[Rfam]
RNA sequence: UUAAGAGGUAGAGGUUGCGUAUUUUAUUAGUAAUUUUUUGGAUGUGGCAGGCACAGGAGAAGAAAAAUGAAAGGAAAAGACGCCGAAAGAGCAGGAUGCCAUGUAGUCUUGUGCUUGGGCAUGCAGUGAAUAACUGUAUGACUGUCAUCGAUGAGAUGGGGCGCUAUCCGAGGU
Dot-bracket structure: ......(((((.....((((.((((.......(((((((......................)))))))......)))).))))...(((.(((((((........))))))).)))((.((((((((.....)))))))).)).(((((.....)))))....)))))......

Notes: A member of the RNA family "Lysine riboswitch aptamer" from Kineothrix alysoides, 174 nucleotides long. Lineage of the source: Bacteria > Bacillati > Bacillota > Clostridia > Kineothrix. From the family's description: Riboswitches are metabolite binding domains within certain messenger RNAs that serve as precision sensors for their corresponding targets.